[Rfam]
RNA sequence: AACUUGUUAGAAGGUUACUUGUUAGUUCAGGACCUCAUUACUUUCUGCCUGAACUAUUGCAGUAGCCUCCUAACUGGUUAU
Numbered sequence: 001a002a003c004u005u006g007u008u009a010g011a012a013g014g015u016u017a018c019u020u021g022u023u024a025g026u027u028c029a030g031g032a033c034c035u036c037a038u039u040a041c042u043u044u045c046u047g048c049c050u051g052a053a054c055u056a057u058u059g060c061a062g063u064a065g066c067c068u069c070c071u072a073a074c075u076g077g078u079u080a081u
Stems, first nucleotide, its partner, number of pairs: 001079004006074005012068008023056009

Background
Shown here is an 81-nucleotide RNA sequence from Mus musculus, a member of the family "mir-872 microRNA precursor family". The sequence is in the family's curated seed alignment. A reference for the family is Ahn et al. (2010), "MicroRNA transcriptome in the newborn mouse ovaries determined by massive parallel sequencing", Mol Hum Reprod.